[Rfam]
RNA sequence: GGACCAAUGCCACGUCGAUGGUAGCUCUUGAAGAGUUUUGACCGGCGAGUUACGAUUGGUCUGAGAAAAAAUAUUUUAGUUUAGUUGAGACUGAUAUUCUACAAUGCUUAUUUCACUCAUGCAUGUUGUAGUUUCAUUACUGAUCAUAUUA
Numbered sequence: 001g002g003a004c005c006a007a008u009g010c011c012a013c014g015u016c017g018a019u020g021g022u023a024g025c026u027c028u029u030g031a032a033g034a035g036u037u038u039u040g041a042c043c044g045g046c047g048a049g050u051u052a053c054g055a056u057u058g059g060u061c062u063g064a065g066a067a068a069a070a071a072u073a074u075u076u077u078a079g080u081u082u083a084g085u086u087g088a089g090a091c092u093g094a095u096a097u098u099c100u101a102c103a104a105u106g107c108u109u110a111u112u113u114c115a116c117u118c119a120u121g122c123a124u125g126u127u128g129u130a131g132u133u134u135c136a137u138u139a140c141u142g143a144u145c146a147u148a149u150u151a
Base pairs, nucleotide, nucleotide: 002061003060004059005058006057007056008055009053013049015048016047017046020043021042022041024036025035026034081143082142083141084140085139094133100128101127104124105123106122107121
This 151-nucleotide RNA from Cannabis sativa belongs to the Rfam family "Small nucleolar RNA snoR2/U65". Its family is annotated with RNA processing and nucleolus in the Gene Ontology. Clan: SNORA65 clan. Taxonomically the source falls in Cannabis (Eukaryota, Streptophyta, Tracheophyta, Gunneridae). A search with the family's covariance model found it, with a score of 52 bits. By type it is an H/ACA-box small nucleolar RNA.